[Rfam]
RNA sequence: UUGGCAUGAUGAGGAAAAUUUAUGUUUAGCUGAUCUAUUUGAUGAUAAAUUCCUCCUACUCAUUCUGA
Numbered sequence: 001u002u003g004g005c006a007u008g009a010u011g012a013g014g015a016a017a018a019u020u021u022a023u024g025u026u027u028a029g030c031u032g033a034u035c036u037a038u039u040u041g042a043u044g045a046u047a048a049a050u051u052c053c054u055c056c057u058a059c060u061c062a063u064u065c066u067g068a
Base pairs, nucleotide, nucleotide: 006063007062008061009060026047030041
Rfam assigns this 68-nucleotide RNA from Oryza punctata to the family "Small nucleolar RNA Z105". Gene Ontology terms of the family: RNA processing and nucleolus. The family's RNA type in Rfam is C/D-box small nucleolar RNA.